[Rfam]
RNA: c-di-GMP-I riboswitch aptamer
RNA sequence: CAUCGCACAAGGCACACCCGCCGUGAGACGGGGUCGCAAAGGCACGGGACCCUCGGGCCAGCCGGCCUACCGAA
Numbered sequence: 001c002a003u004c005g006c007a008c009a010a011g012g013c014a015c016a017c018c019c020g021c022c023g024u025g026a027g028a029c030g031g032g033g034u035c036g037c038a039a040a041g042g043c044a045c046g047g048g049a050c051c052c053u054c055g056g057g058c059c060a061g062c063c064g065g066c067c068u069a070c071c072g073a074a
Stems, first nucleotide, its partner, number of pairs: 012037002017032004022027001040068004045064003048059001050057002